[Rfam]
RNA sequence: GUUAAACUAUAAUCAAAGAUAAGAGUUGCGAGGGUCGUGAGAUCCUCAUUAUGCCCUAGCUGACUUGCCCUCCUAGUCACUAGGGUGUUUUU
Dot-bracket structure: .............................(((((((....))))))).....(((((((.(((((.........))))))))))))......

The record is a 92-nucleotide RNA from Geotalea daltonii, which matches "atoC RNA" in Rfam.
Pairs were carried over by alignment from the consensus structure, which is taken from published work.
The sequence is in the family's curated seed alignment.
NCBI's taxonomy places the organism under Bacteria, Geobacterales, Geobacteraceae, Geotalea, Geotalea daltonii.
Rfam classes the family as a cis-regulatory element.